[Rfam]
This 58-nucleotide sequence from Ricinus communis belongs to the Rfam family "Plastid-psbA-3 3UTR RNA". Rfam describes the family as follows. Plastid psbA-3 is a non-coding RNA (ncRNA) present in plastids. It was identified in inverted repeat sequences in the 3 prime untranslate region (3UTR) of photosystem II quinone-binding protein (psbA). Taxonomically the source falls in Ricinus (Eukaryota, Embryophyta, fabids, Acalypheae). Pairs were carried over by alignment from the consensus structure, which was predicted with LocARNA. By type it is a cis-regulatory element. The literature on the family includes a 2023 paper in Plant Commun by Richter et al., "Retrograde signaling in plants: A critical review focusing on the GUN pathway and beyond".
RNA sequence: UGAGGAGCAAUAGCCAAUCUCUUGUUCUAUCGAAAGGGUUGGUAUUGCUUCUUUUAUU
Numbered sequence: 001u002g003a004g005g006a007g008c009a010a011u012a013g014c015c016a017a018u019c020u021c022u023u024g025u026u027c028u029a030u031c032g033a034a035a036g037g038g039u040u041g042g043u044a045u046u047g048c049u050u051c052u053u054u055u056a057u058u
Base pairs, nucleotide, nucleotide: 002053003052004051005050006049007048008047009046010045011044012043014041019036020035022033023032024031